Nucleotides: 086
Stems, first nucleotide, its partner, number of pairs: 002056007021043005
Number, partner (000 for none) and nucleotide at each position: 001000c002056u003055u004054c005053c006052c007051g008050a009000g010000g011000a012000g013000c014000g015000c016000u017000g018000c019000a020000a021043c022042g023041g024040u025039g026000u027000c028000g029000a030000u031000c032000c033000a034000u035000g036000a037000u038000c039025c040024a041023c042022c043021g044000c045000u046000a047000g048000g049000c050008u051007c052006g053005g054004g055003a056002a057000g058000c059000c060000u061000u062000c063000u064000u065000c066000a067000c068000c069000c070000a071000a072000c073000g074000g075000c076000g077000c078000u079000c080000a081000u082000c083000g084000u085000u086000c
SAH (S-adenosyl-L-homocysteine) riboswitch aptamer: an 86-nucleotide sequence from Parapusillimonas granuli.
A reference for the family is Wang et al. (2008), "Riboswitches that sense S-adenosylhomocysteine and activate genes involved in coenzyme recycling", Mol Cell.